[Rfam]
RNA sequence: UGCCUGUGAGUAUUACAUCAGGUACUGGUUGAUUAGAUUUAAUCCAGUACUUAAUGUGAGACUCAUCGACA
Number, nucleotide and partner (000 for none) at each position: 001u071002g070003c000004c068005u000006g066007u000008g000009a063010g062011u061012a000013u000014u000015a057016c056017a055018u053019c000020a000021g051022g050023u049024a048025c047026u046027g045028g044029u000030u000031g000032a000033u000034u000035a000036g000037a000038u000039u000040u000041a000042a000043u000044c028045c027046a026047g025048u024049a023050c022051u021052u000053a018054a000055u017056g016057u015058g000059a000060g000061a011062c010063u009064c000065a000066u006067c000068g004069a000070c002071a001

Shown here is a 71-nucleotide sequence from Tetranychus urticae, a member of the family "mir-12 microRNA precursor family". On this family, see Werren et al., Science 2010: "Functional and evolutionary insights from the genomes of three parasitoid Nasonia species". Taxonomically the source falls in Tetranychus (Eukaryota, Metazoa, Arthropoda, Acari).